[Rfam]
The record is a 36-nucleotide RNA from Carlito syrichta, which matches "Iron response element I" in Rfam. Gene Ontology term of the family: response to iron ion. The match comes from Rfam's covariance-model search (37 bits). The family has 62 seed sequences and 6,829 matches in Rfam 15.1. Rfam classes the family as a cis-regulatory element.
RNA sequence: UGGCUUCCUGCUUCAACAGUGCUUAGACGGAAUCCG
Numbered sequence: 001u002g003g004c005u006u007c008c009u010g011c012u013u014c015a016a017c018a019g020u021g022c023u024u025a026g027a028c029g030g031a032a033u034c035c036g
Stems, first nucleotide, its partner, number of pairs: 001036003005032004010028001012027002015024002017021001

Record summary:
The base pairs follow the family's consensus structure, which is taken from published work. Taxonomically the source falls in Carlito (Eukaryota, Bilateria, Amniota, Theria).